[Rfam]
Shown here is a 102-nucleotide sequence from Solibacillus sp. R5-41, a member of the family "Purine riboswitch aptamer". A search with the family's covariance model found it, with a score of 81 bits. Taxonomically the source falls in Solibacillus (Bacteria, Bacillati, Bacillota, Caryophanaceae). Riboswitches are metabolite binding domains within certain messenger RNAs that serve as precision sensors for their corresponding targets. Allosteric rearrangement of mRNA structure is mediated by ligand binding, and this results in modulation of gene expression. Gene Ontology term of the family: purine nucleobase biosynthetic process.

RNA sequence: CAUGACUUAAAUAACUUUACUCAUAUAAUAGCAGGGAUAAGGCUUGCGAGUUUCUACCGAUUUACCAUAAAUAAAUCGACUAUGGGUGAAGCAUGAUUAACG
Numbered sequence: 001c002a003u004g005a006c007u008u009a010a011a012u013a014a015c016u017u018u019a020c021u022c023a024u025a026u027a028a029u030a031g032c033a034g035g036g037a038u039a040a041g042g043c044u045u046g047c048g049a050g051u052u053u054c055u056a057c058c059g060a061u062u063u064a065c066c067a068u069a070a071a072u073a074a075a076u077c078g079a080c081u082a083u084g085g086g087u088g089a090a091g092c093a094u095g096a097u098u099a100a101c102g
Base pairs, nucleotide, nucleotide: 018088019087020086021085022084023083024082025081029049031047032046033045034044035043058078059077060076061075062074063073064072